A member of the RNA family "FMN riboswitch aptamer (RFN element)" from Rummeliibacillus stabekisii, 137 nucleotides long. NCBI's taxonomy places the organism under Bacteria, Bacillati, Bacillota, Caryophanales, Rummeliibacillus.

[Rfam]
RNA sequence: AUUCAUCUUCGGGGCAGGGUGAAAUUCCCGAUCGGCGGUAUUAGAGGCAUUUUGACCUCUUGAGCCCGCGAGCCGUUAAGGCAGGACUUGGUGAGAAUCCAGGGCCGACAGUAUAGUCUGGAUGGGAGAAGGUGAAG
Numbered sequence: 001a002u003u004c005a006u007c008u009u010c011g012g013g014g015c016a017g018g019g020u021g022a023a024a025u026u027c028c029c030g031a032u033c034g035g036c037g038g039u040a041u042u043a044g045a046g047g048c049a050u051u052u053u054g055a056c057c058u059c060u061u062g063a064g065c066c067c068g069c070g071a072g073c074c075g076u077u078a079a080g081g082c083a084g085g086a087c088u089u090g091g092u093g094a095g096a097a098u099c100c101a102g103g104g105c106c107g108a109c110a111g112u113a114u115a116g117u118c119u120g121g122a123u124g125g126g127a128g129a130a131g132g133u134g135a136a137g
Base pairs, nucleotide, nucleotide: 003135004134005133006132007131008130009129010128017029018028019027031117032116033107034106035069036068037067038066064105065104074081087103088102089101090100091099109120110119111118
A search with the family's covariance model found it, with a score of 115 bits.